RNA sequence: GCACAUUCUCUGGGGAUCACAGCUGAAGCGUUCAUGUCGCGACCCCUGUCAGGUAAUACCUGCAAAUUCUGCU
Numbered sequence: 001g002c003a004c005a006u007u008c009u010c011u012g013g014g015g016a017u018c019a020c021a022g023c024u025g026a027a028g029c030g031u032u033c034a035u036g037u038c039g040c041g042a043c044c045c046c047u048g049u050c051a052g053g054u055a056a057u058a059c060c061u062g063c064a065a066a067u068u069c070u071g072c073u
Stems, first nucleotide, its partner, number of pairs: 013046003017042002021073003025069003028040003050062005
The family of this 73-nucleotide sequence from Acipenser ruthenus is "Mammalian CPEB3 ribozyme". The mammalian CPEB3 ribozyme is a self cleaving RNA located in the second intron of the CPEB3 gene which belongs to a family of genes regulating messenger RNA polyadenylation. This ribozyme is highly conserved and found only in mammals. The CPEB3 ribozyme is structurally and biochemically related to the human hepatitis delta virus (HDV) ribozyme and the HDV ribozyme is proposed to have arisen from the human transcriptome. Pairs were carried over by alignment from the consensus structure, which is taken from published work. It scores 61 bits against the family's covariance model.